[Rfam]
RNA sequence: UCGUGUCGUCCUGGUGCUGGCCGGGCGGCGGAUCCCGCCUCGUCCAGGAUGGAUGGCGCGGGGUUUCAUCAGAAAAAGGAA
Numbered sequence: 001u002c003g004u005g006u007c008g009u010c011c012u013g014g015u016g017c018u019g020g021c022c023g024g025g026c027g028g029c030g031g032a033u034c035c036c037g038c039c040u041c042g043u044c045c046a047g048g049a050u051g052g053a054u055g056g057c058g059c060g061g062g063g064u065u066u067c068a069u070c071a072g073a074a075a076a077a078g079g080a081a
Stems, first nucleotide, its partner, number of pairs: 001028004006024003011020002030066009040056006
This 81-nucleotide sequence from Pseudomonas sp. FeS53a belongs to the Rfam family "gyrA RNA".
The source organism's lineage runs through Bacteria, Pseudomonadota, Gammaproteobacteria, Pseudomonadales and Pseudomonas.